RNA sequence: AAGUUCGUGCAAAUUCAAUAAAUUGCAAUAUGACGUAGGCCU
Dot-bracket structure: ....(..(((((..........)))))..)............
Description
Rfam assigns this 42-nucleotide RNA sequence from Shigella flexneri to the family "ES036 (CssrF) sRNA". Rfam classes the family as a small RNA. A reference for the family is Rau et al. (2015), "Differential expression of small RNAs under chemical stress and fed-batch fermentation in E. coli", BMC Genomics. About the family: Differentially expressed under several chemical stress conditions. Also identified in Shigella as CssrF.